A member of the RNA family "Photosynthesis regulatory RNA1" from Amazonocrinis nigriterrae, 79 nucleotides long. Formerly known as Syr1 discovered in Synechocystis sp PCC 6803, is a regulatory factor controlling photosynthetic functions. PsrR1 interacts with the ribosome binding regions of several photosynthesis-related mRNAs. In particular, psaL mRNA is processed by RNase E only in the presence of PsrR1. It scores 47 bits against the family's covariance model. Rfam links the family to the GO terms regulation of translation and regulation of photosynthesis. By type it is a small RNA.

RNA sequence: GCUAAGAUUUUUAGACUUCGGUAUUUCCCAUCGACUCUUGAAUUUCCCCCUCACCUCGGUACUUAAUGCCGGGGUUUUU
Numbered sequence: 001g002c003u004a005a006g007a008u009u010u011u012u013a014g015a016c017u018u019c020g021g022u023a024u025u026u027c028c029c030a031u032c033g034a035c036u037c038u039u040g041a042a043u044u045u046c047c048c049c050c051u052c053a054c055c056u057c058g059g060u061a062c063u064u065a066a067u068g069c070c071g072g073g074g075u076u077u078u079u
Base pairs, nucleotide, nucleotide: 053075054074055073056072057071058070059069060068